The family of this 99-nucleotide RNA sequence from Photinus pyralis is "mir-210 microRNA precursor family". The organism belongs to Photinus, within Eukaryota. It scores 72 bits against the family's covariance model.
[Rfam]
RNA sequence: CAGAAUCUCACUGCAGCUGCUGGACGCUGCACAAGAUUAGAACUAUAUAAACUCUUGUGCGUGUGACAGCGGCUAUUGUGGGCAUUCUAAUACAACUAG
Numbered sequence: 001c002a003g004a005a006u007c008u009c010a011c012u013g014c015a016g017c018u019g020c021u022g023g024a025c026g027c028u029g030c031a032c033a034a035g036a037u038u039a040g041a042a043c044u045a046u047a048u049a050a051a052c053u054c055u056u057g058u059g060c061g062u063g064u065g066a067c068a069g070c071g072g073c074u075a076u077u078g079u080g081g082g083c084a085u086u087c088u089a090a091u092a093c094a095a096c097u098a099g
Stems, first nucleotide, its partner, number of pairs: 005085002007082005015074008025063002028061006035054002